[Rfam]
Nucleotides: 145
Base pairs, nucleotide, nucleotide: 002144003143004142005141006140007139008138009137010136011135012134013133014132015131016130018128019127020126021125023123024122028118029117030116031115032114033113
Number, partner (000 for none) and nucleotide at each position: 001000u002144g003143u004142u005141a006140a007139a008138a009137a010136u011135u012134u013133c014132a015131u016130c017000c018128a019127u020126u021125u022000u023123u024122a025000c026000c027000a028118u029117u030116a031115a032114a033113a034000a035000u036000g037000g038000g039000u040000c041000c042000u043000u044000a045000u046000a047000u048000g049000u050000u051000a052000g053000c054000a055000u056000g057000a058000g059000g060000u061000a062000g063000g064000u065000g066000u067000g068000a069000c070000a071000u072000g073000u074000c075000a076000c077000a078000c079000g080000u081000c082000a083000u084000u085000g086000u087000u088000u089000g090000g091000u092000u093000a094000u095000u096000c097000u098000g099000c100000c101000a102000a103000c104000c105000a106000u107000a108000c109000u110000a111000g112000u113033u114032u115031u116030u117029a118028a119000c120000a121000a122024u123023g124000u125021a126020a127019a128018u129000a130016g131015a132014u133013g134012a135011a136010a137009u138008u139007u140006u141005u142004a143003a144002u145000a

Overview: The family of this 145-nucleotide sequence from Gossypium anomalum is "MIR7502 microRNA precursor family". Rfam links the family to the GO terms miRNA-mediated post-transcriptional gene silencing and RISC complex. Rfam 15.1 lists 74,505 matches to the family in 24 species. The organism belongs to Gossypium, within Eukaryota. It scores 85 bits against the family's covariance model. Pairs were carried over by alignment from the consensus structure, which was predicted with RNAalifold.